Hepatitis C virus J7880 RNA: a 123-nucleotide RNA sequence from Orthohepacivirus hominis. The organism belongs to Hepatitis C virus genotype 2, within Viruses. The family's RNA type in Rfam is cis-regulatory element. The sequence is in the family's curated seed alignment. Pairs were carried over by alignment from the consensus structure, which was predicted with RNAfold. For this family Rfam cites "Functionally conserved architecture of hepatitis C virus RNA genomes" (Mauger et al., Proc Natl Acad Sci U S A, 2015).
[Rfam]
RNA sequence: GUUAAGCGGGCCGCCUCUAAGGUUAGUGCGAGGCUCCUCUCAGUAGAGGAAGCCUGCGCGCUGACCCCGCCCCACUCCGCCAAAUCACGGUACGGAUUUGGGGCAAAGGAGGUGCGCAGCUUA
Numbered sequence: 001g002u003u004a005a006g007c008g009g010g011c012c013g014c015c016u017c018u019a020a021g022g023u024u025a026g027u028g029c030g031a032g033g034c035u036c037c038u039c040u041c042a043g044u045a046g047a048g049g050a051a052g053c054c055u056g057c058g059c060g061c062u063g064a065c066c067c068c069g070c071c072c073c074a075c076u077c078c079g080c081c082a083a084a085u086c087a088c089g090g091u092a093c094g095g096a097u098u099u100g101g102g103g104c105a106a107a108g109g110a111g112g113u114g115c116g117c118a119g120c121u122u123a
Base pairs, nucleotide, nucleotide: 006120007119009117012114013113014112015111016110017109018108022065023064024063025062028057029056032053035050036049037048038047039046068103070101071100074097076095077094079091080090